[Rfam]
RNA sequence: GUGCUGAGUAGAAGCGUUCAGCACACCACGGCCCUGGCCGUGCCGCUGGAAAUUGCUCACCCC
Numbered sequence: 001g002u003g004c005u006g007a008g009u010a011g012a013a014g015c016g017u018u019c020a021g022c023a024c025a026c027c028a029c030g031g032c033c034c035u036g037g038c039c040g041u042g043c044c045g046c047u048g049g050a051a052a053u054u055g056c057u058c059a060c061c062c063c
Base pairs, nucleotide, nucleotide: 005059006058007057008056009055010054015048018050019049021046022045027042028041029040030039031038032037

Xanthine riboswitch aptamer (NMT1 RNA): a 63-nucleotide sequence. It is one of the family's seed sequences. Its family is annotated with purine nucleobase binding in the Gene Ontology.